[Rfam]
RNA sequence: AACCAGUCCUCUCUAAUGCAAAUCAAUGAAAUUAGCCAAAUUGCUUUGUCUCGCUUGAGGACGAAAUUAAUAUUAUUGGUUUUAUUAUCCUAGCGCUCUAAAGUAGUCAAUUAGAGAUUUUAUUGCGCUCGAGAAACGUAGAACUACAUAA
Numbered sequence: 001a002a003c004c005a006g007u008c009c010u011c012u013c014u015a016a017u018g019c020a021a022a023u024c025a026a027u028g029a030a031a032u033u034a035g036c037c038a039a040a041u042u043g044c045u046u047u048g049u050c051u052c053g054c055u056u057g058a059g060g061a062c063g064a065a066a067u068u069a070a071u072a073u074u075a076u077u078g079g080u081u082u083u084a085u086u087a088u089c090c091u092a093g094c095g096c097u098c099u100a101a102a103g104u105a106g107u108c109a110a111u112u113a114g115a116g117a118u119u120u121u122a123u124u125g126c127g128c129u130c131g132a133g134a135a136a137c138g139u140a141g142a143a144c145u146a147c148a149u150a151a
Base pairs, nucleotide, nucleotide: 006062007061008060009059010058019048020047021046022045024043025042026041027039078145079144080143081142082141083140084139085138090133091132093130095128